[Rfam]
The family of this 342-nucleotide RNA sequence from [Eubacterium] siraeum is "Bacterial RNase P class A". It is annotated as a ribozyme. Rfam's curators write: Ribonuclease P (RNase P) is a ubiquitous endoribonuclease, found in archaea, bacteria and eukarya as well as chloroplasts and mitochondria. The match comes from Rfam's covariance-model search (258 bits).
RNA sequence: CAACUUUACUGUGCGGUCGCGGGGUGAAAACCGUGAGGAAAGUCCGAGCAUCACAGAGCAGGGUAGCUGUUAACGGCAGCCGGAGGCGACUCCAGGGCGAGUGCAACAGAAAUAUACCGCAUUGUUUUUACAGUGUAAGGGUGGAAAGGCGAGGUAAGAGCUCACCACGGGGCAGGCGACUGUUCCUGUCUGUAAACCCUAUCCGAUGCAACACCGAUUGGUUUCGGGGGUAAACCGUCUGCUCGGCGGUCCCGAUUUAAGGUGGCUUGAGGUCUGCGGCGACGCAGGGCGUAGAUAGAUGAUCGCACACGACAAAACUCGGCUUACAGGUAAAGUUGCUAU
Numbered sequence: 001c002a003a004c005u006u007u008a009c010u011g012u013g014c015g016g017u018c019g020c021g022g023g024g025u026g027a028a029a030a031c032c033g034u035g036a037g038g039a040a041a042g043u044c045c046g047a048g049c050a051u052c053a054c055a056g057a058g059c060a061g062g063g064u065a066g067c068u069g070u071u072a073a074c075g076g077c078a079g080c081c082g083g084a085g086g087c088g089a090c091u092c093c094a095g096g097g098c099g100a101g102u103g104c105a106a107c108a109g110a111a112a113u114a115u116a117c118c119g120c121a122u123u124g125u126u127u128u129u130a131c132a133g134u135g136u137a138a139g140g141g142u143g144g145a146a147a148g149g150c151g152a153g154g155u156a157a158g159a160g161c162u163c164a165c166c167a168c169g170g171g172g173c174a175g176g177c178g179a180c181u182g183u184u185c186c187u188g189u190c191u192g193u194a195a196a197c198c199c200u201a202u203c204c205g206a207u208g209c210a211a212c213a214c215c216g217a218u219u220g221g222u223u224u225c226g227g228g229g230g231u232a233a234a235c236c237g238u239c240u241g242c243u244c245g246g247c248g249g250u251c252c253c254g255a256u257u258u259a260a261g262g263u264g265g266c267u268u269g270a271g272g273u274c275u276g277c278g279g280c281g282a283c284g285c286a287g288g289g290c291g292u293a294g295a296u297a298g299a300u301g302a303u304c305g306c307a308c309a310c311g312a313c314a315a316a317a318c319u320c321g322g323c324u325u326a327c328a329g330g331u332a333a334a335g336u337u338g339c340u341a342u
Stems, first nucleotide, its partner, number of pairs: 001338010011327001012307007020035002023032003040325003044322005049208004056244004061204005066080005081095001082093004096199002101197002103193003117140002119136007148166002151163003167189001169186007212264004224255006235249005271290001273288006